[Rfam]
Description:
The record is an 80-nucleotide RNA sequence from Aurantibacter aestuarii, which matches "Flavo-1 RNA" in Rfam. It is annotated as a small RNA. NCBI's taxonomy places the organism under Bacteria, Bacteroidota, Flavobacteriia, Flavobacteriaceae, Aurantibacter.
RNA sequence: UUUUAGCCUUGAUUGCAGCGGUAUCCUUUUUUUGCUUUGAUAAAUGGCAAAAAAAGAUUUAGCGUAAAGCAAGAAAUAGC
Numbered sequence: 001u002u003u004u005a006g007c008c009u010u011g012a013u014u015g016c017a018g019c020g021g022u023a024u025c026c027u028u029u030u031u032u033u034g035c036u037u038u039g040a041u042a043a044a045u046g047g048c049a050a051a052a053a054a055a056g057a058u059u060u061a062g063c064g065u066a067a068a069g070c071a072a073g074a075a076a077u078a079g080c
Base pairs, nucleotide, nucleotide: 009072010071011070013068014067018063019062023058024057025056029053030052031051032050033049034048035047036046